[Rfam]
Shown here is a 74-nucleotide RNA sequence from Pseudoxanthomonas winnipegensis, a member of the family "Fluoride riboswitch aptamer (crcB RNA motif)". Lineage of the source: Bacteria > Pseudomonadati > Pseudomonadota > Gammaproteobacteria > Pseudoxanthomonas.

RNA sequence: CGGCCCACAGGAGAUGGCAUUCCUCCUCGAACCGCCGGCGGCGCGACCGUCGUGCUGAUGAUGCCUGCCCAACC
Numbered sequence: 001c002g003g004c005c006c007a008c009a010g011g012a013g014a015u016g017g018c019a020u021u022c023c024u025c026c027u028c029g030a031a032c033c034g035c036c037g038g039c040g041g042c043g044c045g046a047c048c049g050u051c052g053u054g055c056u057g058a059u060g061a062u063g064c065c066u067g068c069c070c071a072a073c074c
Stems, first nucleotide, its partner, number of pairs: 010026004016065006034055002036052006